[Rfam]
RNA sequence: UCAACAAGAAACUUGCUUCAGGGGUUUACACACUGAGUACUUUUGUUACUUAAACAACCUCGGGAAGGUCUGAGAUAUAUUCACUAACCUUCUAGCCGGAGGCCUUCUUGAUAAAGUUGGGCAGGAGAACCAGAAAUUGGUCCAGUCUUUAGAUUUUUAAGUCUGAGAUGCCAUAGGUUGAGACUAUAAUCUGAAGUACUGUUGGAACCUCCUGUGAAUCGCAUUUUUAGUUCAAUUUGCAAGGUUCUAGCUAUGCUAGUAUAACUCAAUUCAGACUAAUCUCUUGUUGA
Numbered sequence: 001u002c003a004a005c006a007a008g009a010a011a012c013u014u015g016c017u018u019c020a021g022g023g024g025u026u027u028a029c030a031c032a033c034u035g036a037g038u039a040c041u042u043u044u045g046u047u048a049c050u051u052a053a054a055c056a057a058c059c060u061c062g063g064g065a066a067g068g069u070c071u072g073a074g075a076u077a078u079a080u081u082c083a084c085u086a087a088c089c090u091u092c093u094a095g096c097c098g099g100a101g102g103c104c105u106u107c108u109u110g111a112u113a114a115a116g117u118u119g120g121g122c123a124g125g126a127g128a129a130c131c132a133g134a135a136a137u138u139g140g141u142c143c144a145g146u147c148u149u150u151a152g153a154u155u156u157u158u159a160a161g162u163c164u165g166a167g168a169u170g171c172c173a174u175a176g177g178u179u180g181a182g183a184c185u186a187u188a189a190u191c192u193g194a195a196g197u198a199c200u201g202u203u204g205g206a207a208c209c210u211c212c213u214g215u216g217a218a219u220c221g222c223a224u225u226u227u228u229a230g231u232u233c234a235a236u237u238u239g240c241a242a243g244g245u246u247c248u249a250g251c252u253a254u255g256c257u258a259g260u261a262u263a264a265c266u267c268a269a270u271u272c273a274g275a276c277u278a279a280u281c282u283c284u285u286g287u288u289g290a
Stems, first nucleotide, its partner, number of pairs: 001290004007284003012243005021061005035051005040045001070274005079219004088102005103120002107116002121215007143201003244262002247259004
Background:
Rfam assigns this 290-nucleotide RNA sequence from Sipha flava to the family "Nuclear RNase P". By type it is a ribozyme. It scores 150 bits against the family's covariance model. Its Rfam clan is "RNaseP clan". Taxonomically the source falls in Sipha (Eukaryota, Dicondylia, Eumetabola, Hemiptera). For this family Rfam cites "Ribonuclease P: unity and diversity in a tRNA processing ribozyme" (Frank and Pace, Annu Rev Biochem, 1998). Ribonuclease P (RNase P) is a ubiquitous endoribonuclease, found in archaea, bacteria and eukarya as well as chloroplasts and mitochondria. Its best characterised activity is the generation of mature 5'-ends of tRNAs by cleaving the 5'-leader elements of precursor-tRNAs. Cellular RNase Ps are ribonucleoproteins. RNA from bacterial RNase Ps retains its catalytic activity in the absence of the protein subunit, i.e. it is a ribozyme. Isolated eukaryotic and archaeal RNase P RNA has not been shown to retain its catalytic function, but is still essential for the catalytic activity of the holoenzyme. Although the archaeal and eukaryotic holoenzyme s have a much greater protein content than the bacterial ones, the RNA cores from all the three lineages are homologous -- helices corresponding to P1, P2, P3, P4, and P10/11 are common to all cellular RNase P RNAs. Yet, there is considerable sequence variation, particularly among the eukaryotic RNAs.